[Rfam]
RNA sequence: AGGCAGCCUACUUGCCACGAUAACAAAUGGCAUGAGAGGUGUUAAACUGCUCGUAUAUAAAAUGCUUUUGCUCUUCAGACUUGCUGAAAUUAUUUUGAAGCUGGUCUAGUAAGCUUACGUACAUU
Dot-bracket structure: .((((.(((.(.(((((..........))))).).).)))))).....................(.(..(((....(((((.(((..(....).....))).)))))....)))..).)......
Rfam assigns this 125-nucleotide RNA from Vigna angularis to the family "Small nucleolar RNA snoR77". Rfam classes the family as an H/ACA-box small nucleolar RNA. Its family is annotated with nucleolus and RNA processing in the Gene Ontology. The family's consensus secondary structure was predicted with WAR. A search with the family's covariance model found it, with a score of 110 bits. The source organism's lineage runs through Eukaryota, Spermatophyta, Mesangiospermae, Papilionoideae and Vigna angularis.